[Rfam]
RNA sequence: GUGCGGAGUAUAAGCGGCUAGCGACCGGCUCAUCGAGGCCGGCAACGUGGGGCAUUGCUCUUGGG
Numbered sequence: 001g002u003g004c005g006g007a008g009u010a011u012a013a014g015c016g017g018c019u020a021g022c023g024a025c026c027g028g029c030u031c032a033u034c035g036a037g038g039c040c041g042g043c044a045a046c047g048u049g050g051g052g053c054a055u056u057g058c059u060c061u062u063g064g065g
Stems, first nucleotide, its partner, number of pairs: 005061006015050001018052002021048003025042006
Rfam assigns this 65-nucleotide sequence from Paraburkholderia caballeronis to the family "Xanthine riboswitch aptamer (NMT1 RNA)". Gene Ontology term of the family: purine nucleobase binding. The source organism's lineage runs through Bacteria, Pseudomonadati, Pseudomonadota, Burkholderiaceae and Paraburkholderia.